RNA sequence: AGCAAACAAUUUGUAAGUCGCUCUGGAUAAGAGUGUCUGCUAAAUGACGUAAA
Numbered sequence: 001a002g003c004a005a006a007c008a009a010u011u012u013g014u015a016a017g018u019c020g021c022u023c024u025g026g027a028u029a030a031g032a033g034u035g036u037c038u039g040c041u042a043a044a045u046g047a048c049g050u051a052a053a
Stems, first nucleotide, its partner, number of pairs: 012042001013040003019035006